[Rfam]
RNA sequence: GAUAAAACGGAUGAAAAAUCCGUUCGCCGCAAGCCUAAGGUUUCCUGGGCAAUGUUAAUCAUCUCAGGGUUAGGCGGCCGCUAAGGCGAGGCCGACAGGCGUAGCCGAUGCAAAGCAGGCGAAAAUUCCUGCCCCGCUGGCAGGCGACAAAGACGCGACGGGGUGACGCAUCUACACGACCCAACCGUGCCGCUGGUCGAGCACGGCCUCCCGCGUAGGAGGUGUGGCAGGCAAAUCCACCACACAUUACUUCGAGACGGGCGGGGAAACAAGCCGCGAGGCGAGUGAACUGGGUCCAAGGGGUGCCAAGAAAAACCUCUAGCGAGCCUGACAGCGACCGUACCAUAAACCGACACAGGUAGGCGAGGCGAGUAGCCUCAGGCGCU
Numbered sequence: 001g002a003u004a005a006a007a008c009g010g011a012u013g014a015a016a017a018a019u020c021c022g023u024u025c026g027c028c029g030c031a032a033g034c035c036u037a038a039g040g041u042u043u044c045c046u047g048g049g050c051a052a053u054g055u056u057a058a059u060c061a062u063c064u065c066a067g068g069g070u071u072a073g074g075c076g077g078c079c080g081c082u083a084a085g086g087c088g089a090g091g092c093c094g095a096c097a098g099g100c101g102u103a104g105c106c107g108a109u110g111c112a113a114a115g116c117a118g119g120c121g122a123a124a125a126u127u128c129c130u131g132c133c134c135c136g137c138u139g140g141c142a143g144g145c146g147a148c149a150a151a152g153a154c155g156c157g158a159c160g161g162g163g164u165g166a167c168g169c170a171u172c173u174a175c176a177c178g179a180c181c182c183a184a185c186c187g188u189g190c191c192g193c194u195g196g197u198c199g200a201g202c203a204c205g206g207c208c209u210c211c212c213g214c215g216u217a218g219g220a221g222g223u224g225u226g227g228c229a230g231g232c233a234a235a236u237c238c239a240c241c242a243c244a245c246a247u248u249a250c251u252u253c254g255a256g257a258c259g260g261g262c263g264g265g266g267a268a269a270c271a272a273g274c275c276g277c278g279a280g281g282c283g284a285g286u287g288a289a290c291u292g293g294g295u296c297c298a299a300g301g302g303g304u305g306c307c308a309a310g311a312a313a314a315a316c317c318u319c320u321a322g323c324g325a326g327c328c329u330g331a332c333a334g335c336g337a338c339c340g341u342a343c344c345a346u347a348a349a350c351c352g353a354c355a356c357a358g359g360u361a362g363g364c365g366a367g368g369c370g371a372g373u374a375g376c377c378u379c380a381g382g383c384g385c386u
Stems, first nucleotide, its partner, number of pairs: 006024006025384004033364004039344002044068006053061002075340003080111002085106003089102001091100003115132005135336005141330005155323002160319005168306004179295005185206006207265002211260003218253003222245006230238002269286002273282003350359002366378004

A member of the RNA family "Bacterial large subunit ribosomal RNA" from an uncultured bacterium, 386 nucleotides of a longer RNA. Rfam's curators put it in the seed alignment.